[Rfam]
The family of this 131-nucleotide sequence from Copsychus sechellarum is "U11 spliceosomal RNA". Lineage of the source: Eukaryota > Metazoa > Neognathae > Neoaves > Copsychus. It is annotated as a spliceosomal small nuclear RNA.

RNA sequence: AAAAAGGGCUUCUGCUGUGUGUGGCACGAGGUGGGGCUUGUCCUCCUCUCGCGGAAUCGACAUCAAGAGAUUUCGGAAGCACAAUUUUUGUGAAAGAGGGUUGCUGGUAACCGUUCAGUUCCAGCGCCCCG
Numbered sequence: 001a002a003a004a005a006g007g008g009c010u011u012c013u014g015c016u017g018u019g020u021g022u023g024g025c026a027c028g029a030g031g032u033g034g035g036g037c038u039u040g041u042c043c044u045c046c047u048c049u050c051g052c053g054g055a056a057u058c059g060a061c062a063u064c065a066a067g068a069g070a071u072u073u074c075g076g077a078a079g080c081a082c083a084a085u086u087u088u089u090g091u092g093a094a095a096g097a098g099g100g101u102u103g104c105u106g107g108u109a110a111c112c113g114u115u116c117a118g119u120u121c122c123a124g125c126g127c128c129c130c131g
Base pairs, nucleotide, nucleotide: 008080009079010078011077012076013026014025015024016023017022027051028050029049030048031047033045034044035043036042052075053074054073055072056071057070058069098129099128100127101126103125104124105123106122107121109120110119111118